[Rfam]
RNA sequence: AUGAAAUUUUCGGGAGAUAAUCUAUUUAUAAGAUAGCCGAAGGAAUAAGCAUGAUAGCCCAUAUUAUGUGAAGCUCUCAGGCAAAAGUACCGGAAAUGGACA
Numbered sequence: 001a002u003g004a005a006a007u008u009u010u011c012g013g014g015a016g017a018u019a020a021u022c023u024a025u026u027u028a029u030a031a032g033a034u035a036g037c038c039g040a041a042g043g044a045a046u047a048a049g050c051a052u053g054a055u056a057g058c059c060c061a062u063a064u065u066a067u068g069u070g071a072a073g074c075u076c077u078c079a080g081g082c083a084a085a086a087g088u089a090c091c092g093g094a095a096a097u098g099g100a101c102a
Stems, first nucleotide, its partner, number of pairs: 006097008020034004036082003039078002043076002049069008